[Rfam]
RNA sequence: GGAUGCGUAGCUCAGUUGGAUAGAGCAUCAGAUUCCGGUUCUGAGGGUCGGGGGUUCGAGUCCCUCCGCAUCCG
Numbered sequence: 001g002g003a004u005g006c007g008u009a010g011c012u013c014a015g016u017u018g019g020a021u022a023g024a025g026c027a028u029c030a031g032a033u034u035c036c037g038g039u040u041c042u043g044a045g046g047g048u049c050g051g052g053g054g055u056u057c058g059a060g061u062c063c064c065u066c067c068g069c070a071u072c073c074g
Stems, first nucleotide, its partner, number of pairs: 001073007010026004028044005050066005